[Rfam]
RNA sequence: GGGUCUGGGAUGAGCACAAUUUUCUGAGGAUGCUGAGGGACUCGUUCCAGAUGUCAGUCUGAGGUCC
Numbered sequence: 001g002g003g004u005c006u007g008g009g010a011u012g013a014g015c016a017c018a019a020u021u022u023u024c025u026g027a028g029g030a031u032g033c034u035g036a037g038g039g040a041c042u043c044g045u046u047c048c049a050g051a052u053g054u055c056a057g058u059c060u061g062a063g064g065u066c067c
Base pairs, nucleotide, nucleotide: 001067002066003065004064005063
Rfam assigns this 67-nucleotide sequence from Phyllostomus discolor to the family "Small nucleolar RNA SNORD109A". Rfam 15.1 lists 412 matches to the family in 134 species. The family's RNA type in Rfam is C/D-box small nucleolar RNA. The family is grouped with related families in Rfam's "SNORD74 clan". Rfam links the family to the GO terms nucleolus and RNA processing. Lineage of the source: Eukaryota > Opisthokonta > Metazoa > Bilateria > Phyllostomus. Rfam's curators write: Humans have two copies of the SNORD109 gene, SNORD109A and SNORD109B. The family's consensus secondary structure was predicted with WAR.